[Rfam]
RNA sequence: CGCAUCGGUCCGGAGUUGAUGGGUUAUCUGAUAAACGUUGCCUUCGGGCAACACCCCGGUCUCCUUGUGAAACCAAAACCGUCCAUUGGACAAACCCGCGUUCUUAUAAAGAAUGCAAAACCCUUCCCAUCGACACCAACUUGACCGAUCU
Numbered sequence: 001c002g003c004a005u006c007g008g009u010c011c012g013g014a015g016u017u018g019a020u021g022g023g024u025u026a027u028c029u030g031a032u033a034a035a036c037g038u039u040g041c042c043u044u045c046g047g048g049c050a051a052c053a054c055c056c057c058g059g060u061c062u063c064c065u066u067g068u069g070a071a072a073c074c075a076a077a078a079c080c081g082u083c084c085a086u087u088g089g090a091c092a093a094a095c096c097c098g099c100g101u102u103c104u105u106a107u108a109a110a111g112a113a114u115g116c117a118a119a120a121c122c123c124u125u126c127c128c129a130u131c132g133a134c135a136c137c138a139a140c141u142u143g144a145c146c147g148a149u150c151u
Base pairs, nucleotide, nucleotide: 002151004149006147007146008145009144010143012137013136015134016133017132018131019130020129021128022127023126037052038051039050040049042047056089057088058087059086098116099115100114101113102112103111
Rfam assigns this 151-nucleotide RNA from Caenorhabditis latens to the family "Nematode sRNA ceN72-3_ceN74-2". The match comes from Rfam's covariance-model search (86 bits). The family's RNA type in Rfam is small RNA.